Ruegeria cis52 sRNA: a 178-nucleotide RNA from Thermohalobaculum xanthum.
Rfam 15.1 lists 277 matches to the family in 275 species.
For this family Rfam cites "Experimental Identification of Small Non-Coding RNAs in the Model Marine Bacterium Ruegeria pomeroyi DSS-3" (Rivers et al., Front Microbiol, 2016).
Pairs were carried over by alignment from the consensus structure, which was predicted with RNAfold.
Rfam classes the family as a small RNA.
RNA sequence: UUCUGAGCGCGUGCUUCAGCACCACCGAGCGGAAGCUCAAUCCCUUGAGCCUGGCCGUUCGGAUGUAUUGCGAGGUCAUGACUUCGGCCAUCGAGGCGCGUGUCAUGCGGGCGAUGUAGCCCAUGCCGUAGAUGGCCAUCGUCAUCACCGGCAAGGUGAAGUUCUCGAACGUGAUCGA
Numbered sequence: 001u002u003c004u005g006a007g008c009g010c011g012u013g014c015u016u017c018a019g020c021a022c023c024a025c026c027g028a029g030c031g032g033a034a035g036c037u038c039a040a041u042c043c044c045u046u047g048a049g050c051c052u053g054g055c056c057g058u059u060c061g062g063a064u065g066u067a068u069u070g071c072g073a074g075g076u077c078a079u080g081a082c083u084u085c086g087g088c089c090a091u092c093g094a095g096g097c098g099c100g101u102g103u104c105a106u107g108c109g110g111g112c113g114a115u116g117u118a119g120c121c122c123a124u125g126c127c128g129u130a131g132a133u134g135g136c137c138a139u140c141g142u143c144a145u146c147a148c149c150g151g152c153a154a155g156g157u158g159a160a161g162u163u164c165u166c167g168a169a170c171g172u173g174a175u176c177g178a
Base pairs, nucleotide, nucleotide: 004141005140006139009136010135014131015130016128019126020125021124029122031120038113041110042109046105047104048103051100054097055075056074058072060070061069062068082096083095084094085093086092145178146177149173151172152171154165155164156163